[Rfam]
RNA sequence: CAUAGGAUAAGGCUAACUUGGUUGGUGUUGUACAGAGAAGCCAGCUUGUUUACUUGCCCAUCCCAUG
Numbered sequence: 001c002a003u004a005g006g007a008u009a010a011g012g013c014u015a016a017c018u019u020g021g022u023u024g025g026u027g028u029u030g031u032a033c034a035g036a037g038a039a040g041c042c043a044g045c046u047u048g049u050u051u052a053c054u055u056g057c058c059c060a061u062c063c064c065a066u067g
Base pairs, nucleotide, nucleotide: 001067002066003065005063006062007061011058012057013056015050016049017048020046021045022044023043024042025041026040027033028032
Rfam assigns this 67-nucleotide RNA sequence from Pantherophis guttatus to the family "MAT2A 3'UTR stem loop F". Rfam classes the family as a cis-regulatory element. The literature on the family includes a 2011 paper in Genome Res by Parker et al., "New families of human regulatory RNA structures identified by comparative analysis of vertebrate genomes".